Shown here is a 267-nucleotide sequence from Christensenella minuta, a member of the family "Bacterial large signal recognition particle RNA".
Pairs were carried over by alignment from the consensus structure, which is taken from published work.
About the family: The signal recognition particle (SRP) is a universally conserved ribonucleoprotein involved in the co-translational targeting of proteins to membranes.
Rfam classes the family as a non-coding RNA gene.
The organism belongs to Christensenella, within Bacteria.
For this family Rfam cites "Prediction of signal recognition particle RNA genes" (Regalia et al., Nucleic Acids Res, 2002).

RNA sequence: CCGUACUAGACGGGGAGUUAGCGGUGUCCUGUAACCCGCAAGCCGCUAUAGCGGGGUUGAAUCCCGCGCGGAGGGUCUUCCCGGCAGGGUAUGGAGUACGCCUAUCGGUGUUGAUGAAUGGGUCCUGUGCAAUGCUGCGCUGUGAACCCUGUCAGGUCCUGACGGAAGCAGCAGUAAGCAGAUUGCAGUGUGUGCCGCAGGUCCGCCUGUUCUGAGCCGAUGGCGUAAUUUCCUCCUGUGGGGUAAGAUUCGAUGCGCGGUGUACGG
Dot-bracket structure: ((((((..(((((((.(((...))).))))....(((((...........)))))))).....(((((((..(((((..(((.(((((....(...((((((..(((((......((((((((((((((((.(((((..((((.....((((....(((....)))....))))...))))....)))))))...))))))...))))))))...))))).)))))).).....))))).)))...)))))..))))))).))))))
Numbered sequence: 001c002c003g004u005a006c007u008a009g010a011c012g013g014g015g016a017g018u019u020a021g022c023g024g025u026g027u028c029c030u031g032u033a034a035c036c037c038g039c040a041a042g043c044c045g046c047u048a049u050a051g052c053g054g055g056g057u058u059g060a061a062u063c064c065c066g067c068g069c070g071g072a073g074g075g076u077c078u079u080c081c082c083g084g085c086a087g088g089g090u091a092u093g094g095a096g097u098a099c100g101c102c103u104a105u106c107g108g109u110g111u112u113g114a115u116g117a118a119u120g121g122g123u124c125c126u127g128u129g130c131a132a133u134g135c136u137g138c139g140c141u142g143u144g145a146a147c148c149c150u151g152u153c154a155g156g157u158c159c160u161g162a163c164g165g166a167a168g169c170a171g172c173a174g175u176a177a178g179c180a181g182a183u184u185g186c187a188g189u190g191u192g193u194g195c196c197g198c199a200g201g202u203c204c205g206c207c208u209g210u211u212c213u214g215a216g217c218c219g220a221u222g223g224c225g226u227a228a229u230u231u232c233c234u235c236c237u238g239u240g241g242g243g244u245a246a247g248a249u250u251c252g253a254u255g256c257g258c259g260g261u262g263u264a265c266g267g
Stems, first nucleotide, its partner, number of pairs: 001267006009058003012030004017025003035055005064260007073251005080243003084239005093229001097227006105220005116212008124201006130192002133190005140181004149174004157166003